[Rfam]
Acido-Lenti-1 RNA: a 46-nucleotide RNA sequence from Algoriphagus aquimarinus.
Pairs were carried over by alignment from the consensus structure, which is taken from published work.
RNA sequence: CCCAGCCCUAGCGAGCUGGGCUAGGGUAUUUUGGGCUUUCAGCCCU
Numbered sequence: 001c002c003c004a005g006c007c008c009u010a011g012c013g014a015g016c017u018g019g020g021c022u023a024g025g026g027u028a029u030u031u032u033g034g035g036c037u038u039u040c041a042g043c044c045c046u
Base pairs, nucleotide, nucleotide: 001020002019003018004017005016006015008013033045034044035043036042037041